Glycine riboswitch aptamer: a 103-nucleotide RNA from Lentibacillus cibarius. The source organism's lineage runs through Bacteria, Bacillota, Bacilli, Bacillaceae and Lentibacillus. This family represents the bacterial glycine riboswitch.
RNA sequence: CUCUGGAGAGUGUUUACAAAUUGUAAACCACCCACGAAGCAAGCGCUCUUUGUAAUACAUAACUGGUUACAAAAGUGUGCAACUUUCUGGUUGAAGGACAGAG
Numbered sequence: 001c002u003c004u005g006g007a008g009a010g011u012g013u014u015u016a017c018a019a020a021u022u023g024u025a026a027a028c029c030a031c032c033c034a035c036g037a038a039g040c041a042a043g044c045g046c047u048c049u050u051u052g053u054a055a056u057a058c059a060u061a062a063c064u065g066g067u068u069a070c071a072a073a074a075g076u077g078u079g080c081a082a083c084u085u086u087c088u089g090g091u092u093g094a095a096g097g098a099c100a101g102a103g
Stems, first nucleotide, its partner, number of pairs: 001103005012028004030091003034086001037085003043078005